[Rfam]
RNA sequence: UUGGAGAUUUGAAGAUUUCAACUUGUGGAUUUUGUCAAUUUGAGACUUCAACUCAUAUAUUUGAAUAAUUUGAAGACUUCAACU
Numbered sequence: 001u002u003g004g005a006g007a008u009u010u011g012a013a014g015a016u017u018u019c020a021a022c023u024u025g026u027g028g029a030u031u032u033u034g035u036c037a038a039u040u041u042g043a044g045a046c047u048u049c050a051a052c053u054c055a056u057a058u059a060u061u062u063g064a065a066u067a068a069u070u071u072g073a074a075g076a077c078u079u080c081a082a083c084u
Stems, first nucleotide, its partner, number of pairs: 001082006008074006017065004024057004031051002034048001
RNA: MIR8024 microRNA precursor family
Organism: Solanum commersonii